[Rfam]
Shown here is a 414-nucleotide RNA sequence from Treponema brennaborense, a member of the family "Bacterial RNase P class A". The family's RNA type in Rfam is ribozyme. Rfam links the family to the GO terms ribonuclease P activity, dimeric ribonuclease P complex and tRNA processing. Lineage of the source: Bacteria > Spirochaetia > Treponematales > Treponema > Treponema brennaborense.
RNA sequence: CAGAAGAUACGUGGCCGCUGCCGGUUGUACGAUACUCCGUGCAACCGGGAGAGGAAAGUCCGGGCUCCUUCGGAAAAAAUGCCGGUUAACGACCGGGCGGAAUUGCGGCUUUCGGGUCGCGGUUCUGACAGACAGCGCAACAGAAAAUAAACCGCCCCGGCGACGGGGUAAGGGUGAAAAGGCGGGGUAAGAGCCCACCGGGCAGACGGUAACGGAUGCCGCAGGGCAAGCCUCAUUUGGAGCAAGGUCAAGCAGUAACUGUAAUUCCGAUACGGAAAGGGUUCCUUUCCGCAGUUACGGGUAGACCGCUUGAAGUGCAGGGUAAUCUGCACUCUGGAUAGAUGGCCAUGCCGCGAUGAACCGUAUUCGGUUCAUCGCGGGGAACAGAACCCGGCUUACGGUAUCUUCUGCUUU
Numbered sequence: 001c002a003g004a005a006g007a008u009a010c011g012u013g014g015c016c017g018c019u020g021c022c023g024g025u026u027g028u029a030c031g032a033u034a035c036u037c038c039g040u041g042c043a044a045c046c047g048g049g050a051g052a053g054g055a056a057a058g059u060c061c062g063g064g065c066u067c068c069u070u071c072g073g074a075a076a077a078a079a080u081g082c083c084g085g086u087u088a089a090c091g092a093c094c095g096g097g098c099g100g101a102a103u104u105g106c107g108g109c110u111u112u113c114g115g116g117u118c119g120c121g122g123u124u125c126u127g128a129c130a131g132a133c134a135g136c137g138c139a140a141c142a143g144a145a146a147a148u149a150a151a152c153c154g155c156c157c158c159g160g161c162g163a164c165g166g167g168g169u170a171a172g173g174g175u176g177a178a179a180a181g182g183c184g185g186g187g188u189a190a191g192a193g194c195c196c197a198c199c200g201g202g203c204a205g206a207c208g209g210u211a212a213c214g215g216a217u218g219c220c221g222c223a224g225g226g227c228a229a230g231c232c233u234c235a236u237u238u239g240g241a242g243c244a245a246g247g248u249c250a251a252g253c254a255g256u257a258a259c260u261g262u263a264a265u266u267c268c269g270a271u272a273c274g275g276a277a278a279g280g281g282u283u284c285c286u287u288u289c290c291g292c293a294g295u296u297a298c299g300g301g302u303a304g305a306c307c308g309c310u311u312g313a314a315g316u317g318c319a320g321g322g323u324a325a326u327c328u329g330c331a332c333u334c335u336g337g338a339u340a341g342a343u344g345g346c347c348a349u350g351c352c353g354c355g356a357u358g359a360a361c362c363g364u365a366u367u368c369g370g371u372u373c374a375u376c377g378c379g380g381g382g383a384a385c386a387g388a389a390c391c392c393g394g395c396u397u398a399c400g401g402u403a404u405c406u407u408c409u410g411c412u413u414u
Stems, first nucleotide, its partner, number of pairs: 001410010011399001012348005018051002021048011056397003060394005065242004072284003077238005082096005097129001098127013130233002135231002137227002152173002154169006181199002184196003200222001201220004207214002246307004255298006275289005314333008